[Rfam]
RNA sequence: UGACGGGGGCCCGCACAAGCAGCGGAGCAUGUGGUUUAAUUCGAAGCAACGCGAAGAACCUUACCUAGACUUGACAUCUCCUGAAUUACCCUUAACCGGGGAAGCCCUUCGGGGCAGGAAGACAGGUGGUGCAUGGUUGUCGUCAGCUCGUGUCGUGAGAUGUUGGGUUAAGUCCCGCAACGAGCGCAACCCUUAUUUUUAGUUGCUACCAUUCAGUUGAGCACUCUAAAGAGACUGCCCGGGUUAACCGGGAGGAAGGUGGGGAUGACGUCAAAUCAUCAUGCCCCUUAUGUCUAGGGCUACACACGUGCUACAAUGGUGAGAACAAAGAGACGCGAGACCGCGAGGUGGAGCAAAUCUCAUAAAACUCAUCCCAGUUCGGAUUGCAGGCUGAAACUCGCCUGCAUGAAGCCGGAGUUGCUAGUAAUCGCGAAUCAGCAUGUCGCGGUGAAUACGUUCCCGGGCCUUGUACACACCGCCCGUCACACCAUGAGAGUUGGCAAUACCCGAAGUCCGUGGGGCAACCAGUAAUGGAGCCAGCGGCCGAAGGUAGGGUCAGCGAUUGGGGUGAAGUCGUAACAAGG
Numbered sequence: 001u002g003a004c005g006g007g008g009g010c011c012c013g014c015a016c017a018a019g020c021a022g023c024g025g026a027g028c029a030u031g032u033g034g035u036u037u038a039a040u041u042c043g044a045a046g047c048a049a050c051g052c053g054a055a056g057a058a059c060c061u062u063a064c065c066u067a068g069a070c071u072u073g074a075c076a077u078c079u080c081c082u083g084a085a086u087u088a089c090c091c092u093u094a095a096c097c098g099g100g101g102a103a104g105c106c107c108u109u110c111g112g113g114g115c116a117g118g119a120a121g122a123c124a125g126g127u128g129g130u131g132c133a134u135g136g137u138u139g140u141c142g143u144c145a146g147c148u149c150g151u152g153u154c155g156u157g158a159g160a161u162g163u164u165g166g167g168u169u170a171a172g173u174c175c176c177g178c179a180a181c182g183a184g185c186g187c188a189a190c191c192c193u194u195a196u197u198u199u200u201a202g203u204u205g206c207u208a209c210c211a212u213u214c215a216g217u218u219g220a221g222c223a224c225u226c227u228a229a230a231g232a233g234a235c236u237g238c239c240c241g242g243g244u245u246a247a248c249c250g251g252g253a254g255g256a257a258g259g260u261g262g263g264g265a266u267g268a269c270g271u272c273a274a275a276u277c278a279u280c281a282u283g284c285c286c287c288u289u290a291u292g293u294c295u296a297g298g299g300c301u302a303c304a305c306a307c308g309u310g311c312u313a314c315a316a317u318g319g320u321g322a323g324a325a326c327a328a329a330g331a332g333a334c335g336c337g338a339g340a341c342c343g344c345g346a347g348g349u350g351g352a353g354c355a356a357a358u359c360u361c362a363u364a365a366a367a368c369u370c371a372u373c374c375c376a377g378u379u380c381g382g383a384u385u386g387c388a389g390g391c392u393g394a395a396a397c398u399c400g401c402c403u404g405c406a407u408g409a410a411g412c413c414g415g416a417g418u419u420g421c422u423a424g425u426a427a428u429c430g431c432g433a434a435u436c437a438g439c440a441u442g443u444c445g446c447g448g449u450g451a452a453u454a455c456g457u458u459c460c461c462g463g464g465c466c467u468u469g470u471a472c473a474c475a476c477c478g479c480c481c482g483u484c485a486c487a488c489c490a491u492g493a494g495a496g497u498u499g500g501c502a503a504u505a506c507c508c509g510a511a512g513u514c515c516g517u518g519g520g521g522c523a524a525c526c527a528g529u530a531a532u533g534g535a536g537c538c539a540g541c542g543g544c545c546g547a548a549g550g551u552a553g554g555g556u557c558a559g560c561g562a563u564u565g566g567g568g569u570g571a572a573g574u575c576g577u578a579a580c581a582a583g584g
Stems, first nucleotide, its partner, number of pairs: 001473002003470003007467007015457002019421005024314001026312008034303002040055004064298007077122002079119005086103002089100003105114003125287002128285004134281002136276003139272001141270002146185006152161003164177004191264004196232007206221002210219002235255002238252005318373006330361003335354002340349003380411001385406007427449007476583001478580001481576002486570004491565003496560006504552004512545001514543004520538003525534002

Description
This 584-nucleotide part of an RNA from Proteiniclasticum ruminis belongs to the Rfam family "Bacterial small subunit ribosomal RNA". The family's consensus secondary structure is taken from published work. The match comes from Rfam's covariance-model search (1618 bits). Gene Ontology terms of the family: ribosome and structural constituent of ribosome.